A member of the RNA family "Group II catalytic intron D1-D4-6", 226 nucleotides long.
[Rfam]
RNA sequence: UAAGUCAUCCGUGUCGAAGGCGUAGCGAGCCACGACAGCCCCGAGUCAUGCGUCGUUGCGGGUAACCGCAGGGGCGAAGCGUUGACAGGGGGAGGUGUAGGUCCGGUUAUGAGCCGCGAAAGACAUGAACCACUUUUGGGGGCCGAGACGCUGGAGUACGAGCGAAGGCUACAUCCGACGCCGCGAUAUCGCGAGUGGCGUCGGGCCCUGGCGCGGUCAGAGACCC
Number, nucleotide and partner (000 for none) at each position: 001u000002a000003a000004g000005u000006c000007a000008u000009c000010c000011g000012u037013g036014u035015c034016g033017a000018a000019g031020g030021c029022g000023u194024a000025g192026c191027g000028a000029g021030c020031c019032a000033c016034g015035a014036c013037a012038g000039c091040c090041c089042c088043g000044a000045g086046u085047c084048a083049u081050g080051c076052g075053u074054c073055g000056u071057u070058g069059c068060g067061g066062g000063u000064a000065a000066c061067c060068g059069c058070a057071g056072g000073g054074g053075c052076g051077a000078a000079g000080c050081g049082u000083u048084g047085a046086c045087a000088g042089g041090g040091g039092g000093a000094g000095g000096u000097g000098u000099a000100g000101g000102u000103c000104c000105g000106g000107u000108u000109a000110u220111g218112a000113g217114c216115c215116g214117c213118g212119a000120a000121a000122g000123a000124c000125a000126u000127g000128a000129a000130c000131c000132a000133c000134u000135u000136u211137u210138g209139g208140g207141g206142g169143c168144c167145g000146a000147g000148a000149c164150g163151c162152u161153g000154g000155a000156g000157u000158a000159c000160g000161a152162g151163c150164g149165a000166a000167g144168g143169c142170u000171a000172c000173a000174u205175c204176c203177g202178a201179c200180g199181c198182c197183g196184c195185g000186a000187u000188a000189u000190c000191g026192c025193g000194a023195g184196u183197g182198g181199c180200g179201u178202c177203g176204g175205g174206c141207c140208c139209u138210g137211g136212c118213g117214c116215g115216g114217u113218c111219a000220g110221a000222g000223a000224c000225c000226c000

Group II introns are found in rRNA, tRNA and mRNA of organelles in fungi, plants and protists, and also in mRNA in bacteria. For this family Rfam cites "The ins and outs of group II introns" (Bonen and Vogel, Trends Genet, 2001). The pairing is the family consensus, mapped onto this sequence.